[Rfam]
The record is a 54-nucleotide RNA sequence, which matches "nhaA-I RNA" in Rfam. Rfam classes the family as a riboswitch. From the family's description: Acidobacteria, Alphaproteobacteria, Betaproteobacteria and Gammaproteobacteria, Verrucomicrobia, cand. division NC10.

RNA sequence: GGGUGUCCGGCGAUGCCUGCCGGGCAGGGAAUUGGGGUAGCCGGGCCGCUGCCU
Numbered sequence: 001g002g003g004u005g006u007c008c009g010g011c012g013a014u015g016c017c018u019g020c021c022g023g024g025c026a027g028g029g030a031a032u033u034g035g036g037g038u039a040g041c042c043g044g045g046c047c048g049c050u051g052c053c054u
Stems, first nucleotide, its partner, number of pairs: 005025008035054007